[Rfam]
RNA sequence: GCGGAUGGCCGGAUGGCCGCGGGGCCCCUCGGGGCCUCGAGGAAAGUCCGGACUCCACAAGGCACGGUGCCGGGUAACGCCCGGCCGGGGCAACCCGAGGGAAAGCGCCACAGAGAUGAGACCGCCCCGCAUGCGGGGUAAGGCUGAAACGGUGGGGUAAGAGCCCACCGCGGGACGGGCAACCGGACCGGCACGGCAAGCCCCACCGGGAGCAAUGCCGAAUAGGGACUUCGCGCCGGGCCUUCGGGUCGCGGCAGGGAUGCCUGAUCCCGAGAAGUCCGGGUUGGCAGCUAGAGGCGCGCCGGUAACGGCGGGCCAAGAGGAAUGGCCAUCGAAGGGGGCGACCCCUGAACAAAAUCCGGCUUACAGGCUGUCCGCGCAU
Numbered sequence: 001g002c003g004g005a006u007g008g009c010c011g012g013a014u015g016g017c018c019g020c021g022g023g024g025c026c027c028c029u030c031g032g033g034g035c036c037u038c039g040a041g042g043a044a045a046g047u048c049c050g051g052a053c054u055c056c057a058c059a060a061g062g063c064a065c066g067g068u069g070c071c072g073g074g075u076a077a078c079g080c081c082c083g084g085c086c087g088g089g090g091c092a093a094c095c096c097g098a099g100g101g102a103a104a105g106c107g108c109c110a111c112a113g114a115g116a117u118g119a120g121a122c123c124g125c126c127c128c129g130c131a132u133g134c135g136g137g138g139u140a141a142g143g144c145u146g147a148a149a150c151g152g153u154g155g156g157g158u159a160a161g162a163g164c165c166c167a168c169c170g171c172g173g174g175a176c177g178g179g180c181a182a183c184c185g186g187a188c189c190g191g192c193a194c195g196g197c198a199a200g201c202c203c204c205a206c207c208g209g210g211a212g213c214a215a216u217g218c219c220g221a222a223u224a225g226g227g228a229c230u231u232c233g234c235g236c237c238g239g240g241c242c243u244u245c246g247g248g249u250c251g252c253g254g255c256a257g258g259g260a261u262g263c264c265u266g267a268u269c270c271c272g273a274g275a276a277g278u279c280c281g282g283g284u285u286g287g288c289a290g291c292u293a294g295a296g297g298c299g300c301g302c303c304g305g306u307a308a309c310g311g312c313g314g315g316c317c318a319a320g321a322g323g324a325a326u327g328g329c330c331a332u333c334g335a336a337g338g339g340g341g342c343g344a345c346c347c348c349u350g351a352a353c354a355a356a357a358u359c360c361g362g363c364u365u366a367c368a369g370g371c372u373g374u375c376c377g378c379g380c381a382u
Stems, first nucleotide, its partner, number of pairs: 001378010011367001012333007020039008044365003048362005053212004061265002065208005070084005085099001086097004100203002105201002107197003122143002124139006151169006170192001171190003176185003216289004226280006257271005297316002300313005

Record summary
A member of the RNA family "Bacterial RNase P class A" from Pseudoroseicyclus aestuarii, 382 nucleotides long. Rfam classes the family as a ribozyme. A search with the family's covariance model found it, with a score of 284 bits.